A member of the RNA family "SAM riboswitch aptamer (S box leader)" from Carboxydocella thermautotrophica, 105 nucleotides long. Rfam links the family to the GO term regulation of gene expression. The base pairs follow the family's consensus structure, which is taken from published work.
[Rfam]
RNA sequence: CUCUUAUCGCGAGUGGUGGAGGGACUGGCCCGAUGAAGCCCGGCAACAGCCGCCUGAAGGCGGAAAUGUGCCAAAUCCUGCAGGCAAAAGCCUGAGAGAUGAGAG
Numbered sequence: 001c002u003c004u005u006a007u008c009g010c011g012a013g014u015g016g017u018g019g020a021g022g023g024a025c026u027g028g029c030c031c032g033a034u035g036a037a038g039c040c041c042g043g044c045a046a047c048a049g050c051c052g053c054c055u056g057a058a059g060g061c062g063g064a065a066a067u068g069u070g071c072c073a074a075a076u077c078c079u080g081c082a083g084g085c086a087a088a089a090g091c092c093u094g095a096g097a098g099a100u101g102a103g104a105g
Stems, first nucleotide, its partner, number of pairs: 001105008013041001015040003021031003025080001027078002042072004047068002050063003076097001081094005
Dot-bracket structure: ((((((((....(.(((...(((.[.[[)))......))))((((.((.(((........)))...))))))...(]].](((((....)))))..)))))))))